Annotation: The family of this 89-nucleotide RNA from Sporomusaceae bacterium FL31 is "c-di-GMP-I riboswitch aptamer". A search with the family's covariance model found it, with a score of 73 bits.
RNA sequence: UCUUAUAUUGGGCAAACUUAUCGAAAGGUGAGGGCGCAAAGCUAUGGGUCUAAGGUUGUAAGUACAACUAUGAUUGCCAGGCCGCCGUU
Number, nucleotide and partner (000 for none) at each position: 001u000002c000003u000004u000005a000006u000007a000008u000009u000010g000011g000012g037013c036014a000015a000016a000017c032018u031019u030020a029021u028022c027023g000024a000025a000026a000027g022028g021029u020030g019031a018032g017033g000034g000035c000036g013037c012038a000039a000040a000041g082042c081043u080044a000045u079046g078047g077048g074049u073050c072051u000052a000053a000054g000055g068056u067057u066058g065059u000060a000061a000062g000063u000064a000065c058066a057067a056068c055069u000070a000071u000072g050073a049074u048075u000076g000077c047078c046079a045080g043081g042082c041083c000084g000085c000086c000087g000088u000089u000
Rfam links the family to the GO term cyclic-di-GMP binding.